[Rfam]
RNA sequence: GGCUUUCGUCGUUGCGACAGUAAUCCUGCUCAGUACGAGAGGAACCGCAGGUUCGGACAUUUGGUUCAGCACUCGGUCGAACGACCGGUGGUGCCAAGCUACCAUCCGUCGGAUUAUGCCUGAACGCCUCUAAGGCAGAAUCCGGUCUGGACGAAUGCGAGAAAACGGCAACGAUAAUCUCAGGG
Numbered sequence: 001g002g003c004u005u006u007c008g009u010c011g012u013u014g015c016g017a018c019a020g021u022a023a024u025c026c027u028g029c030u031c032a033g034u035a036c037g038a039g040a041g042g043a044a045c046c047g048c049a050g051g052u053u054c055g056g057a058c059a060u061u062u063g064g065u066u067c068a069g070c071a072c073u074c075g076g077u078c079g080a081a082c083g084a085c086c087g088g089u090g091g092u093g094c095c096a097a098g099c100u101a102c103c104a105u106c107c108g109u110c111g112g113a114u115u116a117u118g119c120c121u122g123a124a125c126g127c128c129u130c131u132a133a134g135g136c137a138g139a140a141u142c143c144g145g146u147c148u149g150g151a152c153g154a155a156u157g158c159g160a161g162a163a164a165a166c167g168g169c170a171a172c173g174a175u176a177a178u179c180u181c182a183g184g185g
Stems, first nucleotide, its partner, number of pairs: 008175008018149003023053001025051005054108004062101003069094004073088006110144003117137005
Eukaryotic large subunit ribosomal RNA: a 185-nucleotide part of an RNA from Pediculus humanus. Its Rfam clan is "LSU clan".